A member of the RNA family "mir-166 microRNA precursor family" from Kalanchoe fedtschenkoi, 202 nucleotides long. The family has 31 seed sequences and 2,599 matches in Rfam 15.1.

[Rfam]
RNA sequence: GUUGAGGGGAGUGUUGGCUGGCUCGAGGCACGCCAACAAGCUACAUAGCUGUAGCCACUGUCAACAGUACGUUGGCUGUUACACAGCACAACACCAUACCAUACAAUGGUGGGUGGCUUCUGUAACAGGCAGCGUGUUGGCUUAGCUCUAGCUAGUAGUGUACGGUAUAAUGUGUGUCGGACCAGGCUUCAUUCCUCUCAAU
Numbered sequence: 001g002u003u004g005a006g007g008g009g010a011g012u013g014u015u016g017g018c019u020g021g022c023u024c025g026a027g028g029c030a031c032g033c034c035a036a037c038a039a040g041c042u043a044c045a046u047a048g049c050u051g052u053a054g055c056c057a058c059u060g061u062c063a064a065c066a067g068u069a070c071g072u073u074g075g076c077u078g079u080u081a082c083a084c085a086g087c088a089c090a091a092c093a094c095c096a097u098a099c100c101a102u103a104c105a106a107u108g109g110u111g112g113g114u115g116g117c118u119u120c121u122g123u124a125a126c127a128g129g130c131a132g133c134g135u136g137u138u139g140g141c142u143u144a145g146c147u148c149u150a151g152c153u154a155g156u157a158g159u160g161u162a163c164g165g166u167a168u169a170a171u172g173u174g175u176g177u178c179g180g181a182c183c184a185g186g187c188u189u190c191a192u193u194c195c196u197c198u199c200a201a202u
Base pairs, nucleotide, nucleotide: 001202002201003200004199005198006197007196008195009194010193011192012191013190016187018185019184020183021182024179025178026177
Rfam links the family to the GO terms RISC complex and miRNA-mediated post-transcriptional gene silencing. This family represents the plant microRNA (miRNA) precursor mir-166. Taxonomically the source falls in Kalanchoe (Eukaryota, Euphyllophyta, Magnoliopsida, eudicotyledons).